[Rfam]
RNA sequence: CCCACGGCUGAAGCCGCGGGCUUUGUUCUGCAGCGCUUUCAGCGCG
Number, nucleotide and partner (000 for none) at each position: 001c020002c019003c018004a000005c016006g015007g014008c013009u000010g000011a000012a000013g008014c007015c006016g005017c000018g003019g002020g001021c000022u000023u000024u000025g000026u000027u000028c000029u000030g000031c000032a000033g045034c044035g043036c042037u041038u000039u000040c000041a037042g036043c035044g034045c033046g000
RNA: Acido-Lenti-1 RNA